Source information: Rfam assigns this 98-nucleotide RNA sequence from Pedobacter rhizosphaerae to the family "SAM riboswitch aptamer (S box leader)". Taxonomically the source falls in Pedobacter (Bacteria, Bacteroidota, Sphingobacteriia, Sphingobacteriaceae). A search with the family's covariance model found it, with a score of 54 bits. Rfam's curators write: The SAM riboswitch is found upstream of a number of genes which code for proteins involved in methionine or cysteine biosynthesis in Gram-positive bacteria.

RNA sequence: GAUUUAUACAGAAGAAGGGAGAGUCAGUUCUCGUUGAACUUCUAGCAACUUUCCAUAGGAAAAAGUGCUCAAACUGAUCUAGCAAUAGAUUAUAAAUU
Numbered sequence: 001g002a003u004u005u006a007u008a009c010a011g012a013a014g015a016a017g018g019g020a021g022a023g024u025c026a027g028u029u030c031u032c033g034u035u036g037a038a039c040u041u042c043u044a045g046c047a048a049c050u051u052u053c054c055a056u057a058g059g060a061a062a063a064a065g066u067g068c069u070c071a072a073a074c075u076g077a078u079c080u081a082g083c084a085a086u087a088g089a090u091u092a093u094a095a096a097u098u
Base pairs, nucleotide, nucleotide: 001098002097003096004095005094006093007092008091013043014042015041016040017039021032022031023030044069045068046067047066049065050064051061052060053059054058073090078087